[Rfam]
RNA: c-di-AMP riboswitch aptamer (ydaO/yuaA leader)
Organism: Actinoplanes awajinensis
RNA sequence: GGCAGGCCGCCGCCCAAUCGUCGUCAGACGAACCGGGGAACCAGGUAGUUGGGGUGAAUCCGCUCUAUGCGGUAGGGAUAGCUUCCGUCCCGAACCCGUCAGCUAACUCGGUCGGCGGUGACUAGGAAGGAU
Numbered sequence: 001g002g003c004a005g006g007c008c009g010c011c012g013c014c015c016a017a018u019c020g021u022c023g024u025c026a027g028a029c030g031a032a033c034c035g036g037g038g039a040a041c042c043a044g045g046u047a048g049u050u051g052g053g054g055u056g057a058a059u060c061c062g063c064u065c066u067a068u069g070c071g072g073u074a075g076g077g078a079u080a081g082c083u084u085c086c087g088u089c090c091c092g093a094a095c096c097c098g099u100c101a102g103c104u105a106a107c108u109c110g111g112u113c114g115g116c117g118g119u120g121a122c123u124a125g126g127a128a129g130g131a132u
Base pairs, nucleotide, nucleotide: 011117012116013115014114018031019030020029021028022027032112033111034110035109036108037107042051043050052097053096054095060072061071062070063069075091076090077089078088
Dot-bracket structure: ..........((((...(((((....)))))((((((....((......))(((.....((((.....))))..((((.........))))...))).........)))))).))))...............